Rfam assigns this 269-nucleotide sequence from Cnephaeus nilssonii to the family "bip internal ribosome entry site (IRES)". Taxonomically the source falls in Cnephaeus (Eukaryota, Teleostomi, Tetrapoda, Boreoeutheria). A reference for the family is Kim and Jang (2002), "Continuous heat shock enhances translational initiation directed by internal ribosomal entry site", Biochem Biophys Res Commun. This family represents the bip internal ribosome entry site (IRES). Its family is annotated with ribosome binding in the Gene Ontology.
[Rfam]
RNA sequence: UACUGUCCGAGUCAUUACACGCUUACUGGUUUUGGGGUUUCGUGAGUGCGAGAGGUAGAGAGGUAAGCGCCGCGGCCUGCUUUUCCAGACCCGCCCUUCGUCUUGUCCACGGCUCCUCCUGACCCCGGGCCCCGUGUCUCCCUCAGGUCGGUAACCUUGGUGCGUUUCCUGGCUUGGGCCUGUGCCUGGAUUGCUUGCGACGCCCUGCCUGCCUGCUGACCGACAGCGAAGGCAAGAUGAAGCUCUCCCUGGUGGCUGCGGUGCUGCUG
Dot-bracket structure: ...((.(((......(.((............(((((((............................(.((((.((...............................)).)))).)......))))))).........................................)))....((.(...).)).................................................................))).))...........